[Rfam]
RNA sequence: GGUCUGAGCCACGUUGAUGGUAGUCUAAAUGACAAUGACCAUCAGUGCUAUGAUCAAACCUAUAUAAAUUCCUCAUUUCGCAUCUUUAUUAGAAUCAGUAGACUGAUUUACCAUUCAUUUAUAAAGCCAUUUUGUGCGAUUACAUCU
Numbered sequence: 001g002g003u004c005u006g007a008g009c010c011a012c013g014u015u016g017a018u019g020g021u022a023g024u025c026u027a028a029a030u031g032a033c034a035a036u037g038a039c040c041a042u043c044a045g046u047g048c049u050a051u052g053a054u055c056a057a058a059c060c061u062a063u064a065u066a067a068a069u070u071c072c073u074c075a076u077u078u079c080g081c082a083u084c085u086u087u088a089u090u091a092g093a094a095u096c097a098g099u100a101g102a103c104u105g106a107u108u109u110a111c112c113a114u115u116c117a118u119u120u121a122u123a124a125a126g127c128c129a130u131u132u133u134g135u136g137c138g139a140u141u142a143c144a145u146c147u
Stems, first nucleotide, its partner, number of pairs: 002059002005056003008051001012047006019040003023033003078139005092127001098122001100120003

Small nucleolar RNA snoR2/U65: a 147-nucleotide RNA from Papaver nudicaule.
It scores 82 bits against the family's covariance model.
By type it is an H/ACA-box small nucleolar RNA.
A reference for the family is Shaw et al. (1998), "Localization and processing from a polycistronic precursor of novel snoRNAs in maize", J Cell Sci.
Taxonomically the source falls in Papaver (Eukaryota, Embryophyta, Magnoliopsida, Mesangiospermae).
Its Rfam clan is "SNORA65 clan".